About this RNA: A member of the RNA family "transfer-messenger RNA" from Paenibacillus larvae, 367 nucleotides long. NCBI's taxonomy places the organism under Bacteria, Bacillati, Bacillota, Paenibacillus larvae, Paenibacillus larvae subsp. larvae. For this family Rfam cites "Probing the structure of the Escherichia coli 10Sa RNA (tmRNA)" (Felden et al., RNA, 1997). Rfam's curators put it in the seed alignment. Gene Ontology term of the family: RNA catabolic process.
[Rfam]
RNA sequence: GGGGGCGUUUUUGGAUUCGACGGGGAUAGUUCGAGCAUGGGUAGCGGGUAGUGGGGACGCGUCCGCUUUAUCAACGCUAACGCCAAAUUUAAACGGCAAACAACAAAACAACUACGCUUUAGCAGCUUAAUAACCUGCUUGCGUGCUCCUGCUUUGCAUCGCCCAUGUGCCAAGUUAGGGGCUCAACUUUAGUGGGCUACGCUGUCUAGUCUCCGCCUGAGGCUAGCUGAAGAAGACAAUCAGGCUGACCUGUGAGAAAGCCGGUUACGGGGCGGGCUUACAGGUGACAUUAAAACCGUGACUACACCCGUAGAAGCCUAUGUGGCGUUAUCUUUGGACACGGGUUCGACUCCCGUCGCCUCCAUAU
Dot-bracket structure: (((((((.............((((((((((....((((((((..((((((((((.[.[[...))))).......]].]......................................(.(.(((((.........))))).).).((((((((((.((((.[[[[[[)))).)))).)))))).........]]]]]]....[.[[.[[[[....((((((.]]]]]].]..........))))))..(((((((((....((([[[[..[..))).)))))))))..........]..]]]]...))))).....))))))))...))))))))))...(((((.......))))))))))))....
Pairs were carried over by alignment from the consensus structure, which is taken from published work.